Annotation: Shown here is a 79-nucleotide RNA from Microcaecilia unicolor, a member of the family "Mammalian CPEB3 ribozyme".
RNA sequence: AGUCUUGUUCUAGGGGUCAAAGCUGAAGUGUUUACACUGACAGCUCCUAUCAUAUUCCUAUGAAUCUGUGAAUUCUGCU
Numbered sequence: 001a002g003u004c005u006u007g008u009u010c011u012a013g014g015g016g017u018c019a020a021a022g023c024u025g026a027a028g029u030g031u032u033u034a035c036a037c038u039g040a041c042a043g044c045u046c047c048u049a050u051c052a053u054a055u056u057c058c059u060a061u062g063a064a065u066c067u068g069u070g071a072a073u074u075c076u077g078c079u
Base pairs, nucleotide, nucleotide: 013047014046015045016044017043021079022078023077025075026074027073028041029040030038051068052067054065055064056063057062